[Rfam]
RNA sequence: AAAAGGGGCUUCUGUCUGUCGCGAGUGGCACACGUAGGGCAGCUUGAUUGCUCUACGUGAGAAUCAACAUCAAGAGAUUUCAGAAGCAUAACUUUUUGGCAUCUGGGAAGCUGGUAAUUCUUAGUCCUGGUACCUGU
Numbered sequence: 001a002a003a004a005g006g007g008g009c010u011u012c013u014g015u016c017u018g019u020c021g022c023g024a025g026u027g028g029c030a031c032a033c034g035u036a037g038g039g040c041a042g043c044u045u046g047a048u049u050g051c052u053c054u055a056c057g058u059g060a061g062a063a064u065c066a067a068c069a070u071c072a073a074g075a076g077a078u079u080u081c082a083g084a085a086g087c088a089u090a091a092c093u094u095u096u097u098g099g100c101a102u103c104u105g106g107g108a109a110g111c112u113g114g115u116a117a118u119u120c121u122u123a124g125u126c127c128u129g130g131u132a133c134c135u136g137u
Stems, first nucleotide, its partner, number of pairs: 008087005017030005031059012061080005105135003110131005117125003
U11 spliceosomal RNA: a 137-nucleotide sequence from Phyllostomus discolor. It scores 84 bits against the family's covariance model. The literature on the family includes a 2008 paper in J Mol Evol by Marz et al., "Evolution of spliceosomal snRNA genes in metazoan animals". The base pairs follow the family's consensus structure, which is taken from published work. By type it is a spliceosomal small nuclear RNA. Clan: U1 clan.